[Rfam]
RNA sequence: CGGCCCCGGUUCGCCCCCCGAGACCGGGUUAUUCUGACGGCCCGCACCCAUCCCCCCCCGAGGUGCGGGCCGUCCUUU
Numbered sequence: 001c002g003g004c005c006c007c008g009g010u011u012c013g014c015c016c017c018c019c020g021a022g023a024c025c026g027g028g029u030u031a032u033u034c035u036g037a038c039g040g041c042c043c044g045c046a047c048c049c050a051u052c053c054c055c056c057c058c059c060g061a062g063g064u065g066c067g068g069g070c071c072g073u074c075c076u077u078u
Base pairs, nucleotide, nucleotide: 003034005028006027007026008025009024010023011022036074037073038072039071040070041069042068043067044066045065046064047063048062